RNA sequence: CCGUGCAGCCGGGGUAGUAGCGGCACCUUGUACCUGCAAUCCGCUAUAGCAGGGGUGAUGUUCGGCAGAGGGCAAUAGUUUAUGGAGCAGCCCGGUAUAAGUGGUGAUGACAUCUGGGUCUUCCGCAACAGAAAUUCGUGAACCAUGUCAGGUCAGGAAUGAAGCAGCAUUAAGCGAAAGCUUCUGUGUGCCGGAAGGGUGCCUGGAUCGAGCUAACUGUACCGGUAACGUCUGUGGACAAUUGUUCGAAGCCGGACGCACGG
Numbered sequence: 001c002c003g004u005g006c007a008g009c010c011g012g013g014g015u016a017g018u019a020g021c022g023g024c025a026c027c028u029u030g031u032a033c034c035u036g037c038a039a040u041c042c043g044c045u046a047u048a049g050c051a052g053g054g055g056u057g058a059u060g061u062u063c064g065g066c067a068g069a070g071g072g073c074a075a076u077a078g079u080u081u082a083u084g085g086a087g088c089a090g091c092c093c094g095g096u097a098u099a100a101g102u103g104g105u106g107a108u109g110a111c112a113u114c115u116g117g118g119u120c121u122u123c124c125g126c127a128a129c130a131g132a133a134a135u136u137c138g139u140g141a142a143c144c145a146u147g148u149c150a151g152g153u154c155a156g157g158a159a160u161g162a163a164g165c166a167g168c169a170u171u172a173a174g175c176g177a178a179a180g181c182u183u184c185u186g187u188g189u190g191c192c193g194g195a196a197g198g199g200u201g202c203c204u205g206g207a208u209c210g211a212g213c214u215a216a217c218u219g220u221a222c223c224g225g226u227a228a229c230g231u232c233u234g235u236g237g238a239c240a241a242u243u244g245u246u247c248g249a250a251g252c253c254g255g256a257c258g259c260a261c262g263g
Stems, first nucleotide, its partner, number of pairs: 001263006008056003011029005018022001033053005061256006070247005076241001078239008090226001093224006101217002103214003112208008120197006126188002129186005135178005145170004153162003